[Rfam]
RNA: Archaeal large subunit ribosomal RNA, nucleotides 617 to 877
Organism: uncultured marine group II euryarchaeote 37F11
RNA sequence: GAGUUUUGAUCAUUGGCGAGGUUAAGCGGUUGAACCGCGUAGCCGAAGGGAAACCGACAAGUCCGCAGCAGUUUACUGUGAGGGACGAAGUGUGCUCGCUUGGAGUCAAUGGUGGAAGACCUGAAGCCCGUCGAUCUAUGCCUGGCCAGAUUGAAGCCCGAUGAAAGUUGGGUGGAGGAUCGCACCGUUGCUGAUCUGCAAAUCGCUCGGACGAGCUGGGUAUAGGGGUGAAAGUCCAAUCGAGAUGGGCAAUAGCAGGUU
Numbered sequence: 001g002a003g004u005u006u007u008g009a010u011c012a013u014u015g016g017c018g019a020g021g022u023u024a025a026g027c028g029g030u031u032g033a034a035c036c037g038c039g040u041a042g043c044c045g046a047a048g049g050g051a052a053a054c055c056g057a058c059a060a061g062u063c064c065g066c067a068g069c070a071g072u073u074u075a076c077u078g079u080g081a082g083g084g085a086c087g088a089a090g091u092g093u094g095c096u097c098g099c100u101u102g103g104a105g106u107c108a109a110u111g112g113u114g115g116a117a118g119a120c121c122u123g124a125a126g127c128c129c130g131u132c133g134a135u136c137u138a139u140g141c142c143u144g145g146c147c148a149g150a151u152u153g154a155a156g157c158c159c160g161a162u163g164a165a166a167g168u169u170g171g172g173u174g175g176a177g178g179a180u181c182g183c184a185c186c187g188u189u190g191c192u193g194a195u196c197u198g199c200a201a202a203u204c205g206c207u208c209g210g211a212c213g214a215g216c217u218g219g220g221u222a223u224a225g226g227g228g229u230g231a232a233a234g235u236c237c238a239a240u241c242g243a244g245a246u247g248g249g250c251a252a253u254a255g256c257a258g259g260u261u
Stems, first nucleotide, its partner, number of pairs: 005117003009113009020044004026038004048055002061086004068079004089100004120259002123256001127249006136225011147213001149181004156173007185210003190206002193204002227237002
Dot-bracket structure: ....(((.(((((((((..((((..((((.....))))..))))...((....)).....((((...((((....))))...))))..((((....))))....))))))))).)))..((.(...((((((...((((((((((((.((((...(((((((....)))))))....))))...(((..((.((........)))).)))..).))))))))))).((.......))......))))))......).))..